[Rfam]
RNA sequence: UCGGCCCCGGUUCACGUACGAGCAAUCCGCGCGUACGACCCGGCGCC
Numbered sequence: 001u002c003g004g005c006c007c008c009g010g011u012u013c014a015c016g017u018a019c020g021a022g023c024a025a026u027c028c029g030c031g032c033g034u035a036c037g038a039c040c041c042g043g044c045g046c047c
Base pairs, nucleotide, nucleotide: 003047004046005045007043008042009041010040015037016036017035018034019033020032022030023029
L31-Actinobacteria ribosomal protein leader: a 47-nucleotide RNA from Streptomyces sp. NRRL S-920. The family's consensus secondary structure is taken from published work. Rfam classes the family as a cis-regulatory leader. Lineage of the source: Bacteria > Bacillati > Actinomycetota > Kitasatosporales > Streptomyces. On this family, see Eckert and Weinberg, BMC Microbiol 2020: "Discovery of 20 novel ribosomal leader candidates in bacteria and archaea". It is one of the family's seed sequences.